[Rfam]
This 87-nucleotide RNA sequence from Dipodomys ordii belongs to the Rfam family "Small nucleolar RNA SNORD79". snoRNA U79 or Z22 is found in intron 7 of the gas5 gene in humans and is also present in mice. Rfam 15.1 lists 784 matches to the family in 651 species. It is annotated as a C/D-box small nucleolar RNA. Pairs were carried over by alignment from the consensus structure, which was predicted with PFOLD.

RNA sequence: AACUGUUGGUGAUGAUUUUUCAAGCUAAAACAGAUGGGAAUCUCUCUGAUAAAAGAAUGCAGAAUAACUUUAAAAACUGAAACAGUG
Numbered sequence: 001a002a003c004u005g006u007u008g009g010u011g012a013u014g015a016u017u018u019u020u021c022a023a024g025c026u027a028a029a030a031c032a033g034a035u036g037g038g039a040a041u042c043u044c045u046c047u048g049a050u051a052a053a054a055g056a057a058u059g060c061a062g063a064a065u066a067a068c069u070u071u072a073a074a075a076a077c078u079g080a081a082a083c084a085g086u087g
Stems, first nucleotide, its partner, number of pairs: 002086006